[Rfam]
RNA sequence: UGUCAAGUGUAAUUAGCGUCAUUUCGGCGGGUGGAUUUCUUUUGCCUUGUGGAAGGUGAAAGAAAAUG
Numbered sequence: 001u002g003u004c005a006a007g008u009g010u011a012a013u014u015a016g017c018g019u020c021a022u023u024u025c026g027g028c029g030g031g032u033g034g035a036u037u038u039c040u041u042u043u044g045c046c047u048u049g050u051g052g053a054a055g056g057u058g059a060a061a062g063a064a065a066a067u068g
Stems, first nucleotide, its partner, number of pairs: 010063001013060002017058004022054005029047001031045005

The record is a 68-nucleotide RNA sequence from Brucella anthropi, which matches "S-element" in Rfam. Pairs were carried over by alignment from the consensus structure, which is taken from published work. About the family: This family represents a group of S-elements from p42d and related plasmids. The source organism's lineage runs through Bacteria, Pseudomonadati, Alphaproteobacteria, Brucellaceae and Brucella anthropi. It is one of the family's seed sequences. The literature on the family includes a 2004 paper in Mol Microbiol by Venkova-Canova et al., "Two discrete elements are required for the replication of a repABC plasmid: an antisense RNA and a stem-loop structure".